[Rfam]
RNA sequence: UAGCAAGCCUCCAGCGCUUCGGCCUGCUGUGACCCUAUGCAAUCCUACAGAGCUUGCCAGAACAGUUUUGAAAGGGCUUCAGGCCUUGCCCCGCUCCAUGCAGAUUAAGGUUGGAGAAAGUUCAGACAAUU
Numbered sequence: 001u002a003g004c005a006a007g008c009c010u011c012c013a014g015c016g017c018u019u020c021g022g023c024c025u026g027c028u029g030u031g032a033c034c035c036u037a038u039g040c041a042a043u044c045c046u047a048c049a050g051a052g053c054u055u056g057c058c059a060g061a062a063c064a065g066u067u068u069u070g071a072a073a074g075g076g077c078u079u080c081a082g083g084c085c086u087u088g089c090c091c092c093g094c095u096c097c098a099u100g101c102a103g104a105u106u107a108a109g110g111u112u113g114g115a116g117a118a119a120g121u122u123c124a125g126a127c128a129a130u131u
Stems, first nucleotide, its partner, number of pairs: 003057006016040002021034002024031001069124004084110005091103001093101001

Background: A member of the RNA family "Small nucleolar RNA SNORA9" from Carlito syrichta, 131 nucleotides long. The family has 36 seed sequences and 1,202 matches in Rfam 15.1. Gene Ontology terms of the family: nucleolus and RNA processing. Pairs were carried over by alignment from the consensus structure, which was predicted with PFOLD. The family's RNA type in Rfam is H/ACA-box small nucleolar RNA. A search with the family's covariance model found it, with a score of 104 bits.